[Rfam]
RNA sequence: UGAUGGCAGUGAUGAUUUAAUUGUUCACCUGAAAUACAAAUAUGAGGGUGUACAGUCACUACCUCAUCUGAUGCCAUCU
Dot-bracket structure: .((((((.................................................................)))))).
Shown here is a 79-nucleotide RNA sequence from Loxodonta africana, a member of the family "Small nucleolar RNA SNORD11B". Taxonomically the source falls in Loxodonta (Eukaryota, Eumetazoa, Sarcopterygii, Amniota). The family is grouped with related families in Rfam's "SNORD11 clan". The base pairs follow the family's consensus structure, which was predicted with WAR. The sequence is in the family's curated seed alignment. Rfam classes the family as a C/D-box small nucleolar RNA. The family has 37 seed sequences and 733 matches in Rfam 15.1.